[Rfam]
RNA: F6 TB sRNA
RNA sequence: CUCGCAGCCCCGUCGUGCUGUCUGCUCUCGAUGGACAGAGAAGACAGCACGACGGGGCUGCGAC
Numbered sequence: 001c002u003c004g005c006a007g008c009c010c011c012g013u014c015g016u017g018c019u020g021u022c023u024g025c026u027c028u029c030g031a032u033g034g035a036c037a038g039a040g041a042a043g044a045c046a047g048c049a050c051g052a053c054g055g056g057g058c059u060g061c062g063a064c
Stems, first nucleotide, its partner, number of pairs: 002063004007058016